Notes: Rfam assigns this 63-nucleotide sequence from Nonomuraea coxensis to the family "L17-Actino-Proteobacteria ribosomal protein leader". The literature on the family includes a 2020 paper in BMC Microbiol by Eckert and Weinberg, "Discovery of 20 novel ribosomal leader candidates in bacteria and archaea". The source organism's lineage runs through Bacteria, Actinomycetota, Streptosporangiaceae, Nonomuraea and Nonomuraea coxensis. The family's RNA type in Rfam is cis-regulatory leader.
[Rfam]
RNA sequence: CGGGCCCCCUGGCGAUCAGGGGGCCUGGCGGCCCGACUCCGGUACCUGGCACGGCCGGGGCGG
Numbered sequence: 001c002g003g004g005c006c007c008c009c010u011g012g013c014g015a016u017c018a019g020g021g022g023g024c025c026u027g028g029c030g031g032c033c034c035g036a037c038u039c040c041g042g043u044a045c046c047u048g049g050c051a052c053g054g055c056c057g058g059g060g061c062g063g
Stems, first nucleotide, its partner, number of pairs: 001027012033063003037060007